The record is a 587-nucleotide part of an RNA from Trichococcus palustris, which matches "Bacterial large subunit ribosomal RNA" in Rfam.
Pairs were carried over by alignment from the consensus structure, which is taken from published work.
A search with the family's covariance model found it, with a score of 2976 bits.
RNA sequence: CCCGCGACAGGACGGAAAGACCCCAUGGAGCUUUACUGCAGUUUGAUAUUGCGUGUUUGUAUCACAUGUACAGGAUAGGUAGGAGCCGAAGAUACCGGAACGCCAGUUUCGGAGGAGGCAACGGUGGGAUACUACCCUUGUGAUAUGACCACUCUAACCCGCUGCUCUUAGCGAGCAGGGAGACAGUGUCAGACGGGCAGUUUGACUGGGGCGGUCGCCUCCAAAAGUGUAACGGAGGCGCCCAAAGGUUCCCUCAGAAUGGUUGGAAAUCAUUCGUAGAGUGUAAAGGCAGAAGGGAGCUUGACUGCGAGACCUACAAGUCGAGCAGGGACGAAAGUCGGGCUUAGUGAUCCGGUGGUUCCGCAUGGAAGGGCCAUCGCUCAACGGAUAAAAGCUACCCUGGGGAUAACAGGCUUAUCUCCCCCAAGAGUUCACAUCGACGGGGAGGUUUGGCACCUCGAUGUCGGCUCAUCGCAUCCUGGGGCUGUAGUCGGUCCCAAGGGUUGGGCUGUUCGCCCAUUAAAGCGGUACGCGAGCUGGGUUCAGAACGUCGUGAGACAGUUCGGUCCCUAUCCGUCGCGGGCGUU
Numbered sequence: 001c002c003c004g005c006g007a008c009a010g011g012a013c014g015g016a017a018a019g020a021c022c023c024c025a026u027g028g029a030g031c032u033u034u035a036c037u038g039c040a041g042u043u044u045g046a047u048a049u050u051g052c053g054u055g056u057u058u059g060u061a062u063c064a065c066a067u068g069u070a071c072a073g074g075a076u077a078g079g080u081a082g083g084a085g086c087c088g089a090a091g092a093u094a095c096c097g098g099a100a101c102g103c104c105a106g107u108u109u110c111g112g113a114g115g116a117g118g119c120a121a122c123g124g125u126g127g128g129a130u131a132c133u134a135c136c137c138u139u140g141u142g143a144u145a146u147g148a149c150c151a152c153u154c155u156a157a158c159c160c161g162c163u164g165c166u167c168u169u170a171g172c173g174a175g176c177a178g179g180g181a182g183a184c185a186g187u188g189u190c191a192g193a194c195g196g197g198c199a200g201u202u203u204g205a206c207u208g209g210g211g212c213g214g215u216c217g218c219c220u221c222c223a224a225a226a227g228u229g230u231a232a233c234g235g236a237g238g239c240g241c242c243c244a245a246a247g248g249u250u251c252c253c254u255c256a257g258a259a260u261g262g263u264u265g266g267a268a269a270u271c272a273u274u275c276g277u278a279g280a281g282u283g284u285a286a287a288g289g290c291a292g293a294a295g296g297g298a299g300c301u302u303g304a305c306u307g308c309g310a311g312a313c314c315u316a317c318a319a320g321u322c323g324a325g326c327a328g329g330g331a332c333g334a335a336a337g338u339c340g341g342g343c344u345u346a347g348u349g350a351u352c353c354g355g356u357g358g359u360u361c362c363g364c365a366u367g368g369a370a371g372g373g374c375c376a377u378c379g380c381u382c383a384a385c386g387g388a389u390a391a392a393a394g395c396u397a398c399c400c401u402g403g404g405g406a407u408a409a410c411a412g413g414c415u416u417a418u419c420u421c422c423c424c425c426a427a428g429a430g431u432u433c434a435c436a437u438c439g440a441c442g443g444g445g446a447g448g449u450u451u452g453g454c455a456c457c458u459c460g461a462u463g464u465c466g467g468c469u470c471a472u473c474g475c476a477u478c479c480u481g482g483g484g485c486u487g488u489a490g491u492c493g494g495u496c497c498c499a500a501g502g503g504u505u506g507g508g509c510u511g512u513u514c515g516c517c518c519a520u521u522a523a524a525g526c527g528g529u530a531c532g533c534g535a536g537c538u539g540g541g542u543u544c545a546g547a548a549c550g551u552c553g554u555g556a557g558a559c560a561g562u563u564c565g566g567u568c569c570c571u572a573u574c575c576g577u578c579g580c581g582g583g584c585g586u587u
Base pairs, nucleotide, nucleotide: 001583002582003581004580005579006578007577008576010575011574012573014570015569022404023403024402025401027400028399029396030395031394032393033392035201036200037199038198042193043192044191045190046189047188048187051154053152054151055150057148058147059146060145061144062143063142064141065140066139068137078136079135080134081133082132085119086118087117095112096111097110098109099108100107101106159180160179162178163177164176165175166174167173204216205215206214207213217239218238219237220236221235222234240385242342243341248300249299250298251297252296253295254280255279257275258274259273260272261271262270281290282289305328306327307326308325311322312321313320330339331338332337353379354378355377356376357375358374359373361372362371413454414453415452417451418448419447420446421445422444423443424442428438429437465540466538467537468536469535470532471529472528473527474526475525478503479502481498482497483496484495485494486493505519506518507517508516509515546564547563548562549561550559551558552557